[Rfam]
RNA sequence: CUGCCAGGGCCUGCUCGGGGGAGAUGUAGUGCACGUGGGAGUCGAUGCCUCCGGCUGUGGCGAUGAAGUGUUCACCGGCGAGGAGUUCGGUGCCUGGGCCAACGAUCAGGCGCGGGUCGACUCCGCUCUGGGUGUGCGGGUUCCCGGAUUUGCCGACCCCGGCUAUCUUUCCGUCGCGAAUGCCGAUGUCGCCUUUAACGACUCCGAGAAUCGGGUCCAGGAUGAUGGCGUUCGUUAUGACCAGGUCCAGGACUCCCUCAGCGGAAGUCGCCUGGGGAUCUGCGGCCAUGCCG
Numbered sequence: 001c002u003g004c005c006a007g008g009g010c011c012u013g014c015u016c017g018g019g020g021g022a023g024a025u026g027u028a029g030u031g032c033a034c035g036u037g038g039g040a041g042u043c044g045a046u047g048c049c050u051c052c053g054g055c056u057g058u059g060g061c062g063a064u065g066a067a068g069u070g071u072u073c074a075c076c077g078g079c080g081a082g083g084a085g086u087u088c089g090g091u092g093c094c095u096g097g098g099c100c101a102a103c104g105a106u107c108a109g110g111c112g113c114g115g116g117u118c119g120a121c122u123c124c125g126c127u128c129u130g131g132g133u134g135u136g137c138g139g140g141u142u143c144c145c146g147g148a149u150u151u152g153c154c155g156a157c158c159c160c161g162g163c164u165a166u167c168u169u170u171c172c173g174u175c176g177c178g179a180a181u182g183c184c185g186a187u188g189u190c191g192c193c194u195u196u197a198a199c200g201a202c203u204c205c206g207a208g209a210a211u212c213g214g215g216u217c218c219a220g221g222a223u224g225a226u227g228g229c230g231u232u233c234g235u236u237a238u239g240a241c242c243a244g245g246u247c248c249a250g251g252a253c254u255c256c257c258u259c260a261g262c263g264g265a266a267g268u269c270g271c272c273u274g275g276g277g278a279u280c281u282g283c284g285g286c287c288a289u290g291c292c293g
Stems, first nucleotide, its partner, number of pairs: 001293001003291001005290002008287002013163003017159001018076002021073003030053002035049001037048001039046001057069002077154002081150002090143001092141005098135002106131002109129002112126002115123002170276004176271004183267001190230004195225002206217001232264003237258001239256001243254002